This 530-nucleotide part of an RNA from Halobacterium salinarum belongs to the Rfam family "Archaeal large subunit ribosomal RNA". The base pairs follow the family's consensus structure, which is taken from published work. The sequence is in the family's curated seed alignment.
RNA sequence: CUACUGUGCCACCUGGUGGAUAGCUCGGCUCGGAUGCCGACGAAGGACGUGCCAAGCUGCGAUAAGCCUGAGGGAGCCGCACGGAGGCUAAGAACUCAGGAUCUCCUAAUGGGAAUCCCUAUAACAAUUGCCUUGCGCAAUGGGGAACGGCCGGAAUUGAAGCAUCUCAGUACGGCCAGGAAGAGAAAUCGAAUGAGACGCCGUUAGUAAUGGCGAAUGAACGCGGCACAGUCCAAACCGAAGCCUUCGGGCAAUGUGGUGUUCGGACUGACUUUCAUCGUUUGACCGUUCGUGUGAAGUCUCCUGAAACGGAGCGCGAUACAGGGUGACAGCCCCGUAUCACGGACCAGUACGACGUGCGUCAGCUCCAGAGUAGCGGGGGUUGGAAAUCCCUCGUGAAUGUGGCAGGCAUCGACUGCCAAGACUAAGUACUCUCCGAGACCGAUAGUGAACAAGUAGUGUGAACGAACGCUGAAAAGCACCCCACAAAGGGGGGUGAAAUAGGGCUUGAAAUCAGGUGGCGAUGGAGC
Numbered sequence: 001c002u003a004c005u006g007u008g009c010c011a012c013c014u015g016g017u018g019g020a021u022a023g024c025u026c027g028g029c030u031c032g033g034a035u036g037c038c039g040a041c042g043a044a045g046g047a048c049g050u051g052c053c054a055a056g057c058u059g060c061g062a063u064a065a066g067c068c069u070g071a072g073g074g075a076g077c078c079g080c081a082c083g084g085a086g087g088c089u090a091a092g093a094a095c096u097c098a099g100g101a102u103c104u105c106c107u108a109a110u111g112g113g114a115a116u117c118c119c120u121a122u123a124a125c126a127a128u129u130g131c132c133u134u135g136c137g138c139a140a141u142g143g144g145g146a147a148c149g150g151c152c153g154g155a156a157u158u159g160a161a162g163c164a165u166c167u168c169a170g171u172a173c174g175g176c177c178a179g180g181a182a183g184a185g186a187a188a189u190c191g192a193a194u195g196a197g198a199c200g201c202c203g204u205u206a207g208u209a210a211u212g213g214c215g216a217a218u219g220a221a222c223g224c225g226g227c228a229c230a231g232u233c234c235a236a237a238c239c240g241a242a243g244c245c246u247u248c249g250g251g252c253a254a255u256g257u258g259g260u261g262u263u264c265g266g267a268c269u270g271a272c273u274u275u276c277a278u279c280g281u282u283u284g285a286c287c288g289u290u291c292g293u294g295u296g297a298a299g300u301c302u303c304c305u306g307a308a309a310c311g312g313a314g315c316g317c318g319a320u321a322c323a324g325g326g327u328g329a330c331a332g333c334c335c336c337g338u339a340u341c342a343c344g345g346a347c348c349a350g351u352a353c354g355a356c357g358u359g360c361g362u363c364a365g366c367u368c369c370a371g372a373g374u375a376g377c378g379g380g381g382g383u384u385g386g387a388a389a390u391c392c393c394u395c396g397u398g399a400a401u402g403u404g405g406c407a408g409g410c411a412u413c414g415a416c417u418g419c420c421a422a423g424a425c426u427a428a429g430u431a432c433u434c435u436c437c438g439a440g441a442c443c444g445a446u447a448g449u450g451a452a453c454a455a456g457u458a459g460u461g462u463g464a465a466c467g468a469a470c471g472c473u474g475a476a477a478a479g480c481a482c483c484c485c486a487c488a489a490a491g492g493g494g495g496g497u498g499a500a501a502u503a504g505g506g507c508u509u510g511a512a513a514u515c516a517g518g519u520g521g522c523g524a525u526g527g528a529g530c
Base pairs, nucleotide, nucleotide: 007523008522009521010520011519012518013517014516015515016514022508023472024471027443028442029440030439031438032437033436034435036432044107045106046105047104048061049060050059067100068099069098070097071096072095076088077087078086111120112119113118127141128140129139130138131137148179149177150176151175152174153173159166160165189196190195200227201226202225203224204223210218211217230426231425232424233423238259239258240257269364270363271362272361279357280356281355282354293342294341299315301314302313303312304311318322324336325335326334376397377396378395379394380393381392382391404420405419406418407417408416459466460465